[Rfam]
RNA sequence: UCCAUGGGGAUCGCGAUCUCCCCACGAGGCGCCAGCCCAAGAAUCGCGUCCAUCAAACCCGUCAAACGGAAGGACGCGCCAUG
Numbered sequence: 001u002c003c004a005u006g007g008g009g010a011u012c013g014c015g016a017u018c019u020c021c022c023c024a025c026g027a028g029g030c031g032c033c034a035g036c037c038c039a040a041g042a043a044u045c046g047c048g049u050c051c052a053u054c055a056a057a058c059c060c061g062u063c064a065a066a067c068g069g070a071a072g073g074a075c076g077c078g079c080c081a082u083g
Stems, first nucleotide, its partner, number of pairs: 005024006046077006
RNA: chrB-a RNA